A member of the RNA family "Small nucleolar RNA U19" from Abrus precatorius, 126 nucleotides long. Rfam 15.1 lists 421 matches to the family in 201 species. The family's consensus secondary structure was predicted with WAR. Rfam classes the family as an H/ACA-box small nucleolar RNA.
RNA sequence: AUGCGGCUUAGUUAGGGGGCACACAGAAAUUGGAACCAAAUUAACGUUUGCUUCCGUCUAAGAGAGGCCUUUUGAAGGGGCUCUGCGUUCUCUCUUCAGUUGUCCCUCAAGCAGCCUUUCACAUUU
Numbered sequence: 001a002u003g004c005g006g007c008u009u010a011g012u013u014a015g016g017g018g019g020c021a022c023a024c025a026g027a028a029a030u031u032g033g034a035a036c037c038a039a040a041u042u043a044a045c046g047u048u049u050g051c052u053u054c055c056g057u058c059u060a061a062g063a064g065a066g067g068c069c070u071u072u073u074g075a076a077g078g079g080g081c082u083c084u085g086c087g088u089u090c091u092c093u094c095u096u097c098a099g100u101u102g103u104c105c106c107u108c109a110a111g112c113a114g115c116c117u118u119u120c121a122c123a124u125u126u
Stems, first nucleotide, its partner, number of pairs: 005020001007018003034053002037050002062120007071111004076107006084099001
Its family is annotated with nucleolus and RNA processing in the Gene Ontology.